[Rfam]
RNA sequence: CGGUCCAUACCGUGGAACUUCUCCGGCCGCUCUUGCCCCGGGCCGAUACGCUGGGCUGAUGCGCCGUCCCCGCUGGAUCGCGCACAGCCGACAGCCGUCGCACCCCAGGGAGCAUUUCCAUG
Numbered sequence: 001c002g003g004u005c006c007a008u009a010c011c012g013u014g015g016a017a018c019u020u021c022u023c024c025g026g027c028c029g030c031u032c033u034u035g036c037c038c039c040g041g042g043c044c045g046a047u048a049c050g051c052u053g054g055g056c057u058g059a060u061g062c063g064c065c066g067u068c069c070c071c072g073c074u075g076g077a078u079c080g081c082g083c084a085c086a087g088c089c090g091a092c093a094g095c096c097g098u099c100g101c102a103c104c105c106c107a108g109g110g111a112g113c114a115u116u117u118c119c120a121u122g
Base pairs, nucleotide, nucleotide: 060084061083062082063081066078067077068076069075087101088100090099091098092097
Shown here is a 122-nucleotide RNA sequence from Streptomyces armeniacus, a member of the family "Streptomyces-metH RNA". A search with the family's covariance model found it, with a score of 84 bits.